[Rfam]
RNA sequence: CAAUAGAAUGGAGAGACUGUUACUCUCUGCCAUGGGAUACAGAGAGGCAUAGUGAUAAUUGGUGAGUCAUCGUUUCGAUUGUCAUAUAUCAAGAUUGGCGAUUCGAUUGUUACUUGUCUACAU
Numbered sequence: 001c002a003a004u005a006g007a008a009u010g011g012a013g014a015g016a017c018u019g020u021u022a023c024u025c026u027c028u029g030c031c032a033u034g035g036g037a038u039a040c041a042g043a044g045a046g047g048c049a050u051a052g053u054g055a056u057a058a059u060u061g062g063u064g065a066g067u068c069a070u071c072g073u074u075u076c077g078a079u080u081g082u083c084a085u086a087u088a089u090c091a092a093g094a095u096u097g098g099c100g101a102u103u104c105g106a107u108u109g110u111u112a113c114u115u116g117u118c119u120a121c122a123u
Stems, first nucleotide, its partner, number of pairs: 008033004013027004018022001061119002064115003069107004078102007087093001
A member of the RNA family "Small nucleolar RNA snoR111" from Senna tora, 123 nucleotides long. The family has 6 seed sequences and 533 matches in Rfam 15.1. Rfam links the family to the GO terms nucleolus and RNA processing. The match comes from Rfam's covariance-model search (69 bits). The organism belongs to Senna, within Eukaryota. The base pairs follow the family's consensus structure, which was predicted with WAR.